U2 spliceosomal RNA: a 191-nucleotide RNA sequence from Pneumocystis jirovecii. The family is grouped with related families in Rfam's "U2 clan". Taxonomically the source falls in Pneumocystis (Eukaryota, Fungi, Dikarya, Pneumocystaceae). U2 is a small nuclear RNA (snRNA) component of the spliceosome (involved in pre-mRNA splicing). The family's RNA type in Rfam is spliceosomal small nuclear RNA.
[Rfam]
RNA sequence: CUAAUGUGUGCAGCCUUUUGGCUUAGAUCAAGUGUAGUAUCUGUUCUUUUCAGUUUAAUCUCUGAAAUGUUCCCACUGGGAACACAUUGAUUAUACUACUUUUUGAACCGAGCCUGGUCAUCUCUAGCUUGCUAUGUGGCCGGCACAGGUGUCGCUUGUAUUGCACUAUCUCAGGCAGACGCCGAAUCUCU
Numbered sequence: 001c002u003a004a005u006g007u008g009u010g011c012a013g014c015c016u017u018u019u020g021g022c023u024u025a026g027a028u029c030a031a032g033u034g035u036a037g038u039a040u041c042u043g044u045u046c047u048u049u050u051c052a053g054u055u056u057a058a059u060c061u062c063u064g065a066a067a068u069g070u071u072c073c074c075a076c077u078g079g080g081a082a083c084a085c086a087u088u089g090a091u092u093a094u095a096c097u098a099c100u101u102u103u104u105g106a107a108c109c110g111a112g113c114c115u116g117g118u119c120a121u122c123u124c125u126a127g128c129u130u131g132c133u134a135u136g137u138g139g140c141c142g143g144c145a146c147a148g149g150u151g152u153c154g155c156u157u158g159u160a161u162u163g164c165a166c167u168a169u170c171u172c173a174g175g176c177a178g179a180c181g182c183c184g185a186a187u188c189u190c191u
Base pairs, nucleotide, nucleotide: 007027009025012023013022014021015020048067049066050065051064052063053062068084069083070082071081072080073079074078112144113143114142116140118138125134126133127132148183149182150181151180152179154176155175156174157173158172